[Rfam]
RNA sequence: GAUGUUGCAGUGAUGACACUAUUGUGGACUAGAGUUUCUGAUUGGGGCUCUUCACCCUAAUUUGACGACACACCCUUGGCUGUCUGAGCACCGUA
Numbered sequence: 001g002a003u004g005u006u007g008c009a010g011u012g013a014u015g016a017c018a019c020u021a022u023u024g025u026g027g028a029c030u031a032g033a034g035u036u037u038c039u040g041a042u043u044g045g046g047g048c049u050c051u052u053c054a055c056c057c058u059a060a061u062u063u064g065a066c067g068a069c070a071c072a073c074c075c076u077u078g079g080c081u082g083u084c085u086g087a088g089c090a091c092c093g094u095a
Base pairs, nucleotide, nucleotide: 002094003093004092006090007089008088035067037065038064042060043059044058045057046056047055
The record is a 95-nucleotide sequence from Papaver nudicaule, which matches "Small nucleolar RNA Z157/R69/R10" in Rfam. Pairs were carried over by alignment from the consensus structure, which was predicted with PFOLD. Its Rfam clan is "SNORD52 clan". Taxonomically the source falls in Papaver (Eukaryota, Embryophyta, Tracheophyta, Papaveroideae). Rfam links the family to the GO terms RNA processing and nucleolus. The family's RNA type in Rfam is C/D-box small nucleolar RNA.